Alphaproteobacteria transfer-messenger RNA: a 356-nucleotide RNA sequence from Mesorhizobium sp. NBSH29. Gene Ontology term of the family: RNA catabolic process. The match comes from Rfam's covariance-model search (306 bits). NCBI's taxonomy places the organism under Bacteria, Pseudomonadati, Hyphomicrobiales, Phyllobacteriaceae, Mesorhizobium. Bacterial tmRNA, also known as 10Sa RNA or SsrA, is named for its dual tRNA and mRNA-like properties. By type it is a non-coding RNA gene.
[Rfam]
RNA sequence: GCCCUUCCAAUUUCCGCAUUCCAUCCCUAUAUUCGGUUCGUCAGCUUGCUGACUAUGGCGAUAAACUGCCGAUGUAAUAAGCUUUUCGGACCCGGGGGCGGUACCCGGCGCCUCCACCAAGAUCGGUCCUGACCGGACCGUUGUUGCUGGGGGCGAAAUAGGAUCGACGAGGGUGUAAAGAUCGGACUUUUGCUCGGCAUUGUACCACCGUUAUCGGGCUAAACUUGUAGUUGCAAAUGACAACUAUGCGGAAGCACGUCUCGCCGCUUAAUGCGGUGCGAUAGCUUCAAUUCAAGCCCUAGUGGUUCGCACUUCUAGGCGGGGUUCGGAGGCACCUGGCAACAGAAGCCUCCACU
Numbered sequence: 001g002c003c004c005u006u007c008c009a010a011u012u013u014c015c016g017c018a019u020u021c022c023a024u025c026c027c028u029a030u031a032u033u034c035g036g037u038u039c040g041u042c043a044g045c046u047u048g049c050u051g052a053c054u055a056u057g058g059c060g061a062u063a064a065a066c067u068g069c070c071g072a073u074g075u076a077a078u079a080a081g082c083u084u085u086u087c088g089g090a091c092c093c094g095g096g097g098g099c100g101g102u103a104c105c106c107g108g109c110g111c112c113u114c115c116a117c118c119a120a121g122a123u124c125g126g127u128c129c130u131g132a133c134c135g136g137a138c139c140g141u142u143g144u145u146g147c148u149g150g151g152g153g154c155g156a157a158a159u160a161g162g163a164u165c166g167a168c169g170a171g172g173g174u175g176u177a178a179a180g181a182u183c184g185g186a187c188u189u190u191u192g193c194u195c196g197g198c199a200u201u202g203u204a205c206c207a208c209c210g211u212u213a214u215c216g217g218g219c220u221a222a223a224c225u226u227g228u229a230g231u232u233g234c235a236a237a238u239g240a241c242a243a244c245u246a247u248g249c250g251g252a253a254g255c256a257c258g259u260c261u262c263g264c265c266g267c268u269u270a271a272u273g274c275g276g277u278g279c280g281a282u283a284g285c286u287u288c289a290a291u292u293c294a295a296g297c298c299c300u301a302g303u304g305g306u307u308c309g310c311a312c313u314u315c316u317a318g319g320c321g322g323g324g325u326u327c328g329g330a331g332g333c334a335c336c337u338g339g340c341a342a343c344a345g346a347a348g349c350c351u352c353c354a355c356u
Stems, first nucleotide, its partner, number of pairs: 040053005057194005069185005082173003086170003092108005109155007195210003200221001202219001205217002322337004328353006